RNA: Eukaryotic large subunit ribosomal RNA, nucleotides 2378 to 2977
RNA sequence: AUCAGUGGGGGAAAGAAGACCCUUUUGAGCUUGAAUCUAGUCCGACUUUAUGAAAUGACUUGAGAGGUGUAGUAUAAGUGGGAGUCGAAAGGCGAAAGUGAAACACCACUACUUUUAAUGUUAUUUUACUUAUUCCAUGAAUCGGAAGAGGGGGACUACCCCUCUUUUUGGACCCAAGGCUCGCUUUGCGUGUCGAUCCGGUGGGAAGACAAUGUCAAGUGGGGAGUUUGGCUGGGGUGGCACAUCUGUUAAAAGAUAACGCAGGUGUCCUAAGAUGAGCUCAACGAAAAUAGAAAAAUCGUGUGGAUCAGAAUGAUAAAAUCUCAUUUGAUUAUGAUUUUCAGUACGAAUACGAACCGUGAAUGCGUGGCAUAACGAUCUUUUAGACCUUCGUAAUUCUAAGCUGGAGGUGUCAGAAAAGUUACCACAAGGAUAACUAGCUUGUGGCAGCCAAGCUAUAUAGUGAAAUUUAUUUUUGAUCCUUCGCUGUCGGCUCUUCCUAUCAUUGUGAAGCAAAAUUCACCAAGUGUUGGAUUGUUAGCCCACCAAUAGGGAACGUUUAGACCAUCGUGAGAUAGAUUAGUUUUACCCUACUAAUGA
Numbered sequence: 001a002u003c004a005g006u007g008g009g010g011g012a013a014a015g016a017a018g019a020c021c022c023u024u025u026u027g028a029g030c031u032u033g034a035a036u037c038u039a040g041u042c043c044g045a046c047u048u049u050a051u052g053a054a055a056u057g058a059c060u061u062g063a064g065a066g067g068u069g070u071a072g073u074a075u076a077a078g079u080g081g082g083a084g085u086c087g088a089a090a091g092g093c094g095a096a097a098g099u100g101a102a103a104c105a106c107c108a109c110u111a112c113u114u115u116u117a118a119u120g121u122u123a124u125u126u127u128a129c130u131u132a133u134u135c136c137a138u139g140a141a142u143c144g145g146a147a148g149a150g151g152g153g154g155a156c157u158a159c160c161c162c163u164c165u166u167u168u169u170g171g172a173c174c175c176a177a178g179g180c181u182c183g184c185u186u187u188g189c190g191u192g193u194c195g196a197u198c199c200g201g202u203g204g205g206a207a208g209a210c211a212a213u214g215u216c217a218a219g220u221g222g223g224g225a226g227u228u229u230g231g232c233u234g235g236g237g238u239g240g241c242a243c244a245u246c247u248g249u250u251a252a253a254a255g256a257u258a259a260c261g262c263a264g265g266u267g268u269c270c271u272a273a274g275a276u277g278a279g280c281u282c283a284a285c286g287a288a289a290a291u292a293g294a295a296a297a298a299u300c301g302u303g304u305g306g307a308u309c310a311g312a313a314u315g316a317u318a319a320a321a322u323c324u325c326a327u328u329u330g331a332u333u334a335u336g337a338u339u340u341u342c343a344g345u346a347c348g349a350a351u352a353c354g355a356a357c358c359g360u361g362a363a364u365g366c367g368u369g370g371c372a373u374a375a376c377g378a379u380c381u382u383u384u385a386g387a388c389c390u391u392c393g394u395a396a397u398u399c400u401a402a403g404c405u406g407g408a409g410g411u412g413u414c415a416g417a418a419a420a421g422u423u424a425c426c427a428c429a430a431g432g433a434u435a436a437c438u439a440g441c442u443u444g445u446g447g448c449a450g451c452c453a454a455g456c457u458a459u460a461u462a463g464u465g466a467a468a469u470u471u472a473u474u475u476u477u478g479a480u481c482c483u484u485c486g487c488u489g490u491c492g493g494c495u496c497u498u499c500c501u502a503u504c505a506u507u508g509u510g511a512a513g514c515a516a517a518a519u520u521c522a523c524c525a526a527g528u529g530u531u532g533g534a535u536u537g538u539u540a541g542c543c544c545a546c547c548a549a550u551a552g553g554g555a556a557c558g559u560u561u562a563g564a565c566c567a568u569c570g571u572g573a574g575a576u577a578g579a580u581u582a583g584u585u586u587u588a589c590c591c592u593a594c595u596a597a598u599g600a
Stems, first nucleotide, its partner, number of pairs: 001598002004595003009592003013587002021431001023429001026427002028423005034227001036225002041219001044216003051128009060118007077110005084093002133207004143200004151163004178194003182190001230243001231241003244266006269370002275327005281307002284302004332356002337351004358367003381409006389403003440480001442478001444477001446473001449470002455464002497555005504529002508523005531545003535541001563581002566578001567576003